RNA sequence: GCUGGGUGUUUGGCGUGCACCUAUAAUCCUGCUUCUGGGAGGCUUGGUAGAGUGGAUGGCUUGAGUUUAGGAGCCCUGUUUCGUGAUACCGCAUGUUGAUCAGGUGCCCGCACUAAGCUUGACAUCAGCAUGGAUCUGCUAGAGGAAUCUAGUAGGUGCAGGUUAGCUAAGGAGGAGCGUAGUGGGUCAGGAGGGAAACCUAGCAGCCAAAAGUUCCCGUGUUCGGCAGUAGUGGGAUCGUGCCAGUGAGUGGGCGUCAUGCAACAGCCUCAACGAAAUAGCCAAACCUCUAUCUUU
Numbered sequence: 001g002c003u004g005g006g007u008g009u010u011u012g013g014c015g016u017g018c019a020c021c022u023a024u025a026a027u028c029c030u031g032c033u034u035c036u037g038g039g040a041g042g043c044u045u046g047g048u049a050g051a052g053u054g055g056a057u058g059g060c061u062u063g064a065g066u067u068u069a070g071g072a073g074c075c076c077u078g079u080u081u082c083g084u085g086a087u088a089c090c091g092c093a094u095g096u097u098g099a100u101c102a103g104g105u106g107c108c109c110g111c112a113c114u115a116a117g118c119u120u121g122a123c124a125u126c127a128g129c130a131u132g133g134a135u136c137u138g139c140u141a142g143a144g145g146a147a148u149c150u151a152g153u154a155g156g157u158g159c160a161g162g163u164u165a166g167c168u169a170a171g172g173a174g175g176a177g178c179g180u181a182g183u184g185g186g187u188c189a190g191g192a193g194g195g196a197a198a199c200c201u202a203g204c205a206g207c208c209a210a211a212a213g214u215u216c217c218c219g220u221g222u223u224c225g226g227c228a229g230u231a232g233u234g235g236g237a238u239c240g241u242g243c244c245a246g247u248g249a250g251u252g253g254g255c256g257u258c259a260u261g262c263a264a265c266a267g268c269c270u271c272a273a274c275g276a277a278a279u280a281g282c283c284a285a286a287c288c289u290c291u292a293u294c295u296u297u
Stems, first nucleotide, its partner, number of pairs: 001043003004022006011015001027040003046294007057284005065274003069270003076267005082261006090254001092252003096248001101246001103244005108236002111234005117227003121223005127164003131160002134157010167171001174217005183210001185208003192201003
RNA: Metazoan signal recognition particle RNA
Organism: Daphnia pulex